[Rfam]
RNA sequence: GCACCGGGACGACCCGGCGCCGAUUCCGCAGUGACUCCAGGGGACGACCCCG
Numbered sequence: 001g002c003a004c005c006g007g008g009a010c011g012a013c014c015c016g017g018c019g020c021c022g023a024u025u026c027c028g029c030a031g032u033g034a035c036u037c038c039a040g041g042g043g044a045c046g047a048c049c050c051c052g
Stems, first nucleotide, its partner, number of pairs: 001020002004017005040051004
RNA: Guanidine-II riboswitch aptamer (mini-ykkC)